[Rfam]
RNA: Mason-Pfizer monkey virus packaging signal
Organism: Molossus molossus
RNA sequence: UGGCGCCCAACGUGGGGCUCGAGCACGGGGGAUCCAGUGAAGGACGCCGUUCGAGUGGCCGGCAGAAAGGAAAAGAAAAGAGGGAACGGCGUGGGAACCUGCUGCGUCUGCACCCCUCGGGUAAGUGAAUGGCGAUUAUGGGUCAAGCAUUGAGCCAAGAUAGAUGUCGUUGAAGGACUAGGAAAGGCUAUCAAGGCACGAGGAGUAAAGGUGAAAAUUAAGCAUUUGUGUCAGUAUUUUGAUUAUAUUAAGGAAGUUUGCCCUU
Numbered sequence: 001u002g003g004c005g006c007c008c009a010a011c012g013u014g015g016g017g018c019u020c021g022a023g024c025a026c027g028g029g030g031g032a033u034c035c036a037g038u039g040a041a042g043g044a045c046g047c048c049g050u051u052c053g054a055g056u057g058g059c060c061g062g063c064a065g066a067a068a069g070g071a072a073a074a075g076a077a078a079a080g081a082g083g084g085a086a087c088g089g090c091g092u093g094g095g096a097a098c099c100u101g102c103u104g105c106g107u108c109u110g111c112a113c114c115c116c117u118c119g120g121g122u123a124a125g126u127g128a129a130u131g132g133c134g135a136u137u138a139u140g141g142g143u144c145a146a147g148c149a150u151u152g153a154g155c156c157a158a159g160a161u162a163g164a165u166g167u168c169g170u171u172g173a174a175g176g177a178c179u180a181g182g183a184a185a186g187g188c189u190a191u192c193a194a195g196g197c198a199c200g201a202g203g204a205g206u207a208a209a210g211g212u213g214a215a216a217a218u219u220a221a222g223c224a225u226u227u228g229u230g231u232c233a234g235u236a237u238u239u240u241g242a243u244u245a246u247a248u249u250a251a252g253g254a255a256g257u258u259u260g261c262c263c264u265u
Base pairs, nucleotide, nucleotide: 006031007030008029012026013025014024039047080118081117082116083114084113090106091105092104093103094102126145127144128143130142133140134139152191154188155187156186199241200240201239202238203237205235206234209227210226211225212224213223250265251264252263253262